[Rfam]
RNA: Small nucleolar RNA R21
RNA sequence: UAUCCCUAUGAAGAAUGAACUGAUAUUUCAAUUAAAAGUAGUGGGCUGAUCUCCAUUGAUGAUCACUAACCAAUUCUGAGGGAUG
Numbered sequence: 001u002a003u004c005c006c007u008a009u010g011a012a013g014a015a016u017g018a019a020c021u022g023a024u025a026u027u028u029c030a031a032u033u034a035a036a037a038g039u040a041g042u043g044g045g046c047u048g049a050u051c052u053c054c055a056u057u058g059a060u061g062a063u064c065a066c067u068a069a070c071c072a073a074u075u076c077u078g079a080g081g082g083a084u085g
Stems, first nucleotide, its partner, number of pairs: 001085006